A member of the RNA family "FMN riboswitch aptamer (RFN element)" from Bradyrhizobium sp. STM 3843, 167 nucleotides long. Gene Ontology term of the family: FMN binding.

RNA sequence: CCAUGUUCUCAGGGCGGGGUGGAAUUCCCCACCGGCGGUAAGGGCGCCCCCCGGUCGGGGUGCCCAAGCCCGCGAGCGCCUUGCCUGAUCUUGCGAUCGGGCAAGGGUCAGCAGAUUCGGUGCGACUCCGAGGCCGACGGUUACAGUCCGGAUGAAAGAGAACGGGU
Number, nucleotide and partner (000 for none) at each position: 001c000002c000003a000004u164005g163006u162007u161008c160009u159010c158011a000012g000013g000014g000015c000016g000017g029018g028019g027020u000021g000022g000023a000024a000025u000026u000027c019028c018029c017030c000031a147032c146033c136034g135035g073036c072037g071038g070039u000040a000041a000042g000043g000044g000045c000046g000047c000048c000049c000050c000051c000052c000053g000054g000055u000056c000057g000058g000059g000060g000061u000062g000063c000064c000065c000066a000067a000068g134069c133070c038071c037072g036073c035074g000075a000076g112077c111078g000079c000080c000081u000082u000083g000084c000085c000086u000087g000088a000089u000090c000091u000092u000093g000094c000095g000096a000097u000098c000099g000100g000101g000102c000103a000104a000105g000106g000107g000108u000109c000110a000111g077112c076113a000114g000115a000116u132117u131118c130119g129120g128121u000122g000123c000124g000125a000126c000127u000128c120129c119130g118131a117132g116133g069134c068135c034136g033137a000138c150139g149140g148141u000142u000143a000144c000145a000146g032147u031148c140149c139150g138151g000152a000153u000154g000155a000156a000157a000158g010159a009160g008161a007162a006163c005164g004165g000166g000167u000